[Rfam]
RNA sequence: GUCGGGCUUGGUGACGCGAGCAUGUGACUCGAGUGAGGGCAUCAAGAUGGCUGGACUGUGAUUGAGCCCAGAUUGGUUGGGUUCGAUGGUUGCAAAAUCUGGCUUGCCCAUUCCAAGUUUGGAGUUGGACCAUGUGGUUUAGGCGAAGGCCUGGGCUUCAUGGUUCCUAAAGUAGAGGGCAAUGCGUUAGACUGGUUUCACAGAGCUGCGAAUACCUCUCUCUCCAAACAGUGGAAGGAUAACAUGCUGGUGCAUCCUUGACUCAUAUAACUAGUUGGGCUCCUUUUGAUGGACUCCCAUUUUU
Numbered sequence: 001g002u003c004g005g006g007c008u009u010g011g012u013g014a015c016g017c018g019a020g021c022a023u024g025u026g027a028c029u030c031g032a033g034u035g036a037g038g039g040c041a042u043c044a045a046g047a048u049g050g051c052u053g054g055a056c057u058g059u060g061a062u063u064g065a066g067c068c069c070a071g072a073u074u075g076g077u078u079g080g081g082u083u084c085g086a087u088g089g090u091u092g093c094a095a096a097a098u099c100u101g102g103c104u105u106g107c108c109c110a111u112u113c114c115a116a117g118u119u120u121g122g123a124g125u126u127g128g129a130c131c132a133u134g135u136g137g138u139u140u141a142g143g144c145g146a147a148g149g150c151c152u153g154g155g156c157u158u159c160a161u162g163g164u165u166c167c168u169a170a171a172g173u174a175g176a177g178g179g180c181a182a183u184g185c186g187u188u189a190g191a192c193u194g195g196u197u198u199c200a201c202a203g204a205g206c207u208g209c210g211a212a213u214a215c216c217u218c219u220c221u222c223u224c225c226a227a228a229c230a231g232u233g234g235a236a237g238g239a240u241a242a243c244a245u246g247c248u249g250g251u252g253c254a255u256c257c258u259u260g261a262c263u264c265a266u267a268u269a270a271c272u273a274g275u276u277g278g279g280c281u282c283c284u285u286u287u288g289a290u291g292g293a294c295u296c297c298c299a300u301u302u303u304u
Stems, first nucleotide, its partner, number of pairs: 001040003004023001006021005028037003044303007053294001056291001059288003064282004069278001071276008079264005085258001088256001091254002095251001099250005105244002108238002111236005117229008127166008136157009167172001174219005183212001185210003192203003
RNA: Plant signal recognition particle RNA